[Rfam]
RNA sequence: GGGCCGGCUAUAGCCCAGCGGUUCCUUCGGCGCAUCACAAUGAUUGUCUCUCGCCCCCUGCACUGCGUGGGGGGUUCGAUCCCGCGGGCACCCCUGGCUCACUU
Numbered sequence: 001g002g003g004c005c006g007g008c009u010a011u012a013g014c015c016c017a018g019c020g021g022u023u024c025c026u027u028c029g030g031c032g033c034a035u036c037a038c039a040a041u042g043a044u045u046g047u048c049u050c051u052c053g054c055c056c057c058c059u060g061c062a063c064u065g066c067g068u069g070g071g072g073g074g075u076u077c078g079a080u081c082c083c084g085c086g087g088g089c090a091c092c093c094c095u096g097g098c099u100c101a102c103u104u
Base pairs, nucleotide, nucleotide: 002099003098004097005096006095007094013089014088015087016086018085019084020083021082027079028078029077030076
RNA: Vault RNA
Organism: Chionis minor